[Rfam]
RNA sequence: CACCGACAUCAGCGAUUCGUUCUGCGAGCCUUGGCCGACGGCCAGGUAGGCAUUCAUGCCCAGCUCUUUCAUCUGCUGCUCGCCGAUCACCCGUGUGGCGACGGAGCCCGCGUAGCUGUCGGCCAACUGACGUGCCUGCGAUGCCAGGUAACCCGCAUUACAGAUGUUAGGCGGCAUGUUGCCGAGAUCCUUGGC
Numbered sequence: 001c002a003c004c005g006a007c008a009u010c011a012g013c014g015a016u017u018c019g020u021u022c023u024g025c026g027a028g029c030c031u032u033g034g035c036c037g038a039c040g041g042c043c044a045g046g047u048a049g050g051c052a053u054u055c056a057u058g059c060c061c062a063g064c065u066c067u068u069u070c071a072u073c074u075g076c077u078g079c080u081c082g083c084c085g086a087u088c089a090c091c092c093g094u095g096u097g098g099c100g101a102c103g104g105a106g107c108c109c110g111c112g113u114a115g116c117u118g119u120c121g122g123c124c125a126a127c128u129g130a131c132g133u134g135c136c137u138g139c140g141a142u143g144c145c146a147g148g149u150a151a152c153c154c155g156c157a158u159u160a161c162a163g164a165u166g167u168u169a170g171g172c173g174g175c176a177u178g179u180u181g182c183c184g185a186g187a188u189c190c191u192u193g194g195c
Stems, first nucleotide, its partner, number of pairs: 005189002012032001014030001016028005033043003050059002062077003078135002081132002084129002087126001092122001095119003099112002103108001136163003140159005167186002170183003
Rfam assigns this 195-nucleotide RNA from Edwardsiella hoshinae to the family "Yersinia sRNA 276".
The match comes from Rfam's covariance-model search (152 bits).
A reference for the family is Nuss et al. (2015), "Transcriptomic profiling of Yersinia pseudotuberculosis reveals reprogramming of the Crp regulon by temperature and uncovers Crp as a master regulator of small RNAs", PLoS Genet.
Rfam classes the family as an antisense RNA.